[Rfam]
RNA sequence: ACAGUCCUUGUCGACGGGAGCUCGUUGCGUCAAUGAACGCCUAGUGAGAUACAACUUGCUGACAACCCACGAUACAAACACAAUAGUGUCUGCGCGCGGCUCCUUGUCUGCGUGUGGAGCAAUUUCUGAGACC
Numbered sequence: 001a002c003a004g005u006c007c008u009u010g011u012c013g014a015c016g017g018g019a020g021c022u023c024g025u026u027g028c029g030u031c032a033a034u035g036a037a038c039g040c041c042u043a044g045u046g047a048g049a050u051a052c053a054a055c056u057u058g059c060u061g062a063c064a065a066c067c068c069a070c071g072a073u074a075c076a077a078a079c080a081c082a083a084u085a086g087u088g089u090c091u092g093c094g095c096g097c098g099g100c101u102c103c104u105u106g107u108c109u110g111c112g113u114g115u116g117g118a119g120c121a122a123u124u125u126c127u128g129a130g131a132c133c
Base pairs, nucleotide, nucleotide: 005019006018007017008016020059021058024055025054026053027052029050030049031048037045038044086120087119089117090116095110096109098107